[Rfam]
RNA sequence: CGGGUGGGCCCUCGAAGUCCAGUGUCGGGGGCGUUCAGGCCCGGUGUCGUCUGCCUCCGCCGAAGCGAGUGAAGGAGCGCCCCUCACGUGGGGGCGCCGUCCUCGCGCCCAGGAGGCGGUUUGGCCCGGGUGCACUCGUCCCCUUCCAGAGGACGCCGCACCCCGUUCUGCUCGGCGGGCCGUGAGGGCGGAUACUUGCAUGUGGACUCCGAACUUUUUGGAUGUUCCGAUCUCUUCCGCCCGGGCCCGCGGCGGACGGUGGCAUUGAAGACUCGUCGCCUCCUACUUUGUUACUCUGGGUGGUGCCGGUGGGUUCUAGGUUAGCCGUGCGCACGCUCUCCGGGCGUGGCCGGUGGGCCCCCUCGCCGGCGCUGCUUUUAUUUUUUCCCUUUGGAGGUCGACGGUGUUGCGGCGCAGUAGGUCGGUGCCCCACCCGACCCGUCUUGAAACACGG
Numbered sequence: 001c002g003g004g005u006g007g008g009c010c011c012u013c014g015a016a017g018u019c020c021a022g023u024g025u026c027g028g029g030g031g032c033g034u035u036c037a038g039g040c041c042c043g044g045u046g047u048c049g050u051c052u053g054c055c056u057c058c059g060c061c062g063a064a065g066c067g068a069g070u071g072a073a074g075g076a077g078c079g080c081c082c083c084u085c086a087c088g089u090g091g092g093g094g095c096g097c098c099g100u101c102c103u104c105g106c107g108c109c110c111a112g113g114a115g116g117c118g119g120u121u122u123g124g125c126c127c128g129g130g131u132g133c134a135c136u137c138g139u140c141c142c143c144u145u146c147c148a149g150a151g152g153a154c155g156c157c158g159c160a161c162c163c164c165g166u167u168c169u170g171c172u173c174g175g176c177g178g179g180c181c182g183u184g185a186g187g188g189c190g191g192a193u194a195c196u197u198g199c200a201u202g203u204g205g206a207c208u209c210c211g212a213a214c215u216u217u218u219u220g221g222a223u224g225u226u227c228c229g230a231u232c233u234c235u236u237c238c239g240c241c242c243g244g245g246c247c248c249g250c251g252g253c254g255g256a257c258g259g260u261g262g263c264a265u266u267g268a269a270g271a272c273u274c275g276u277c278g279c280c281u282c283c284u285a286c287u288u289u290g291u292u293a294c295u296c297u298g299g300g301u302g303g304u305g306c307c308g309g310u311g312g313g314u315u316c317u318a319g320g321u322u323a324g325c326c327g328u329g330c331g332c333a334c335g336c337u338c339u340c341c342g343g344g345c346g347u348g349g350c351c352g353g354u355g356g357g358c359c360c361c362c363u364c365g366c367c368g369g370c371g372c373u374g375c376u377u378u379u380a381u382u383u384u385u386u387c388c389c390u391u392u393g394g395a396g397g398u399c400g401a402c403g404g405u406g407u408u409g410c411g412g413c414g415c416a417g418u419a420g421g422u423c424g425g426u427g428c429c430c431c432a433c434c435c436g437a438c439c440c441g442u443c444u445u446g447a448a449a450c451a452c453g454g
Base pairs, nucleotide, nucleotide: 001436002435003434004433005432006431007430008429009427011425012424439454440453441452442451